[Rfam]
RNA sequence: UCAGUCAAUAGAGGCGCGGAGGACAGGGUACUGCAUAUUUGGGGACAGGCACCCGGUAAAUUUGCAGGAAGGGGUCUUCCGCCGAAGGGGCCGGACGGGUCUGUGCGUAUGGUUCCUGGCAGCGCGGUGUAAGCGGCGCUGCUGUCAUGUAGUGAUACAUGGAGCGCUAUUGGUCAA
Numbered sequence: 001u002c003a004g005u006c007a008a009u010a011g012a013g014g015c016g017c018g019g020a021g022g023a024c025a026g027g028g029u030a031c032u033g034c035a036u037a038u039u040u041g042g043g044g045a046c047a048g049g050c051a052c053c054c055g056g057u058a059a060a061u062u063u064g065c066a067g068g069a070a071g072g073g074g075u076c077u078u079c080c081g082c083c084g085a086a087g088g089g090g091c092c093g094g095a096c097g098g099g100u101c102u103g104u105g106c107g108u109a110u111g112g113u114u115c116c117u118g119g120c121a122g123c124g125c126g127g128u129g130u131a132a133g134c135g136g137c138g139c140u141g142c143u144g145u146c147a148u149g150u151a152g153u154g155a156u157a158c159a160u161g162g163a164g165c166g167c168u169a170u171u172g173g174u175c176a177a
Stems, first nucleotide, its partner, number of pairs: 006172006016082009031067005037061002086117008095108003118143008127134002145162007

This 177-nucleotide sequence from Firmicutes bacterium CAG:176 belongs to the Rfam family "Lysine riboswitch aptamer". On this family, see Mandal et al., Cell 2003: "Riboswitches Control Fundamental Biochemical Pathways in Bacillus subtilis and Other Bacteria". Rfam links the family to the GO term lysine biosynthetic process. The base pairs follow the family's consensus structure, which is taken from published work. The source organism's lineage runs through Bacteria, Bacillati and Bacillota.